RNA sequence: GGAACCCUAGGGAGGGAUACUAAUCCAGCCUUAGGAAAAGGAACCUGCCAGGGAGUCUUGGAGAUUGGUGACCAUGCUAAUGACUUA
Numbered sequence: 001g002g003a004a005c006c007c008u009a010g011g012g013a014g015g016g017a018u019a020c021u022a023a024u025c026c027a028g029c030c031u032u033a034g035g036a037a038a039a040g041g042a043a044c045c046u047g048c049c050a051g052g053g054a055g056u057c058u059u060g061g062a063g064a065u066u067g068g069u070g071a072c073c074a075u076g077c078u079a080a081u082g083a084c085u086u087a
Base pairs, nucleotide, nucleotide: 002086003085006082008080010078011077013075015073016072018070019069020068021067022066023065024064025063029061030060038059039058040057041056044053045052046051

mir-9014 microRNA precursor family: an 87-nucleotide RNA sequence from Equus caballus. NCBI's taxonomy places the organism under Eukaryota, Deuterostomia, Sarcopterygii, Dipnotetrapodomorpha, Equus. Gene Ontology terms of the family: RISC complex and miRNA-mediated post-transcriptional gene silencing. The match comes from Rfam's covariance-model search (78 bits). Pairs were carried over by alignment from the consensus structure, which was predicted with RNAalifold.